[Rfam]
RNA sequence: GGCUUAAUGAUGAGAAGUCAUAUGGUCCUAAAGAGAGAAAAUGACAUAAAAAUUAUGCUCAAUAGGAUUGUGCUGAGCU
Numbered sequence: 001g002g003c004u005u006a007a008u009g010a011u012g013a014g015a016a017g018u019c020a021u022a023u024g025g026u027c028c029u030a031a032a033g034a035g036a037g038a039a040a041a042u043g044a045c046a047u048a049a050a051a052a053u054u055a056u057g058c059u060c061a062a063u064a065g066g067a068u069u070g071u072g073c074u075g076a077g078c079u
Base pairs, nucleotide, nucleotide: 001079002078003077005075006074008072009071
RNA: Small nucleolar RNA SNORD115
Organism: Bos taurus